[Rfam]
RNA sequence: GUUGGCUAUGAUUACAAACUUGCCCUCUUUGAGAGAGCAGCUCUAUUAUGACAGUCAAAUUAAUGUUCUGAGCCAGC
Number, nucleotide and partner (000 for none) at each position: 001g077002u076003u075004g074005g073006c072007u000008a000009u000010g000011a000012u000013u000014a000015c000016a000017a000018a000019c000020u000021u000022g000023c000024c000025c000026u000027c000028u000029u000030u000031g000032a000033g000034a000035g000036a000037g000038c000039a000040g000041c000042u000043c000044u000045a000046u000047u000048a000049u000050g000051a000052c000053a000054g000055u000056c000057a000058a000059a000060u000061u000062a000063a000064u000065g000066u000067u000068c000069u000070g000071a000072g006073c005074c004075a003076g002077c001
Shown here is a 77-nucleotide RNA sequence from Anabarilius grahami, a member of the family "Small nucleolar RNA SNORD103/SNORD85". Its family is annotated with RNA processing and nucleolus in the Gene Ontology. The family has 41 seed sequences and 1,349 matches in Rfam 15.1. NCBI's taxonomy places the organism under Eukaryota, Vertebrata, Clupeocephala, Cypriniphysae, Anabarilius. The base pairs follow the family's consensus structure. Rfam classes the family as a C/D-box small nucleolar RNA.